[Rfam]
RNA sequence: UCUAUGUAAAGGCACAACUAUCGAAAGGUAGCGUCGCAAAGCUAUGGGUCUAAAGAAAAUCUCUUUCUAGGAUUGCCAGGUUGUCAAG
Numbered sequence: 001u002c003u004a005u006g007u008a009a010a011g012g013c014a015c016a017a018c019u020a021u022c023g024a025a026a027g028g029u030a031g032c033g034u035c036g037c038a039a040a041g042c043u044a045u046g047g048g049u050c051u052a053a054a055g056a057a058a059a060u061c062u063c064u065u066u067c068u069a070g071g072a073u074u075g076c077c078a079g080g081u082u083g084u085c086a087a088g
Base pairs, nucleotide, nucleotide: 012037013036018031019030020029021028022027040082041081042080043079045078046077047076048073049072050071055067056066057065058064
Notes: c-di-GMP-I riboswitch aptamer: an 88-nucleotide RNA sequence from Clostridium pasteurianum. The base pairs follow the family's consensus structure, which is taken from published work. NCBI's taxonomy places the organism under Bacteria, Clostridia, Eubacteriales, Clostridiaceae, Clostridium pasteurianum.